This 126-nucleotide RNA from Cnephaeus nilssonii belongs to the Rfam family "Small nucleolar RNA SNORA27". Gene Ontology terms of the family: RNA processing and nucleolus. The family is grouped with related families in Rfam's "SNORA27 clan". ACA27 is a member of the H/ACA class of snoRNA that guide the sites of modification of uridines to pseudouridines.
RNA sequence: GAACGCAUAAUAAUCUGGCCACUCAGUGUAUGUCUUUAUUGGUCAUUCAAGUAGGGCAAAGGAAAUAUCCUUUUAAAACUCAAGCAAACUGGGUGUUUGUCUUGUAUCCUGUCAGAGGAAAAAAAU
Numbered sequence: 001g002a003a004c005g006c007a008u009a010a011u012a013a014u015c016u017g018g019c020c021a022c023u024c025a026g027u028g029u030a031u032g033u034c035u036u037u038a039u040u041g042g043u044c045a046u047u048c049a050a051g052u053a054g055g056g057c058a059a060a061g062g063a064a065a066u067a068u069c070c071u072u073u074u075a076a077a078a079c080u081c082a083a084g085c086a087a088a089c090u091g092g093g094u095g096u097u098u099g100u101c102u103u104g105u106a107u108c109c110u111g112u113c114a115g116a117g118g119a120a121a122a123a124a125a126u
Stems, first nucleotide, its partner, number of pairs: 031058005039050004068119006081104001082102001084100006
The source organism's lineage runs through Eukaryota, Deuterostomia, Craniata, Yangochiroptera and Cnephaeus.